MIR5269 microRNA precursor family: an 80-nucleotide RNA sequence from Medicago truncatula. It scores 64 bits against the family's covariance model. The organism belongs to Medicago, within Eukaryota.
RNA sequence: UUUGGUGAAAUCUAUGUGGAUAUCACAUUUUAGAAAUGGACCUUACAUAAAGUGGUGAGACCCGCGUAGUUUUCAUCCAA
Numbered sequence: 001u002u003u004g005g006u007g008a009a010a011u012c013u014a015u016g017u018g019g020a021u022a023u024c025a026c027a028u029u030u031u032a033g034a035a036a037u038g039g040a041c042c043u044u045a046c047a048u049a050a051a052g053u054g055g056u057g058a059g060a061c062c063c064g065c066g067u068a069g070u071u072u073u074c075a076u077c078c079a080a
Stems, first nucleotide, its partner, number of pairs: 001080002004077007012069007023058003026054007